sul1 RNA: a 59-nucleotide sequence from Roseovarius sp. TM1035.
[Rfam]
RNA sequence: CAUGGAUUUCGGGUGCAAUCCCCGGAUGGCUCUUCCGGCCGCCUAUCCGCCGGAUCAUC
Numbered sequence: 001c002a003u004g005g006a007u008u009u010c011g012g013g014u015g016c017a018a019u020c021c022c023c024g025g026a027u028g029g030c031u032c033u034u035c036c037g038g039c040c041g042c043c044u045a046u047c048c049g050c051c052g053g054a055u056c057a058u059c
Stems, first nucleotide, its partner, number of pairs: 006027002009025004034054006